[Rfam]
RNA sequence: GGUAUUGUUUACCCCAUUUGAAAGGCCCCGGAACCUUCCAAAUACCUUCGGUGGGACGGAACACCCACCACACUGUAAACAAAUA
Number, nucleotide and partner (000 for none) at each position: 001g000002g000003u000004a000005u000006u081007g080008u079009u078010u077011a076012c075013c000014c000015c000016a043017u042018u041019u040020g039021a000022a037023a036024g035025g034026c000027c000028c000029c000030g000031g000032a000033a000034c025035c024036u023037u022038c000039c020040a019041a018042a017043u016044a000045c000046c000047u000048u000049c000050g000051g000052u000053g000054g000055g000056a000057c000058g000059g000060a000061a000062c000063a000064c000065c000066c000067a000068c000069c000070a000071c000072a000073c000074u000075g012076u011077a010078a009079a008080c007081a006082a000083a000084u000085a000
Rfam assigns this 85-nucleotide sequence from Streptococcus iniae to the family "Ribosomal protein L13 leader".
The organism belongs to Streptococcus, within Bacteria.
Pairs were carried over by alignment from the consensus structure, which was predicted with CMfinder.
Gene Ontology term of the family: regulation of gene expression.
A reference for the family is Zengel and Lindahl (1994), "Diverse mechanisms for regulating ribosomal protein synthesis in Escherichia coli", Prog Nucleic Acid Res Mol Biol.
It is annotated as a cis-regulatory leader.